[Rfam]
RNA sequence: AGGCAGGAUUUAACUAUAAUAUAGAUGACACGGAUUGUAUUGUUAUUCCCCCUGCUCAAAACAAUGUUGUUUCUUAACUAUACCUGACUGCUAUGUAGCAGCCAGGUACGUUUAGUCUCAUACAU
Numbered sequence: 001a002g003g004c005a006g007g008a009u010u011u012a013a014c015u016a017u018a019a020u021a022u023a024g025a026u027g028a029c030a031c032g033g034a035u036u037g038u039a040u041u042g043u044u045a046u047u048c049c050c051c052c053u054g055c056u057c058a059a060a061a062c063a064a065u066g067u068u069g070u071u072u073c074u075u076a077a078c079u080a081u082a083c084c085u086g087a088c089u090g091c092u093a094u095g096u097a098g099c100a101g102c103c104a105g106g107u108a109c110g111u112u113u114a115g116u117c118u119c120a121u122a123c124a125u
Stems, first nucleotide, its partner, number of pairs: 003055005016043009083106004088101004

This 125-nucleotide RNA sequence from Jaculus jaculus belongs to the Rfam family "Small nucleolar RNA SNORA63". Lineage of the source: Eukaryota > Eumetazoa > Sarcopterygii > Dipodoidea > Jaculus. Rfam describes the family as follows. E3 belongs to the H/ACA class of snoRNAs and is involved in the processing of eukaryotic pre-rRNA and has regions of complementarity to 18S rRNA. E3 is encoded in introns in the gene for protein synthesis initiation factor 4AII. A search with the family's covariance model found it, with a score of 109 bits. By type it is an H/ACA-box small nucleolar RNA.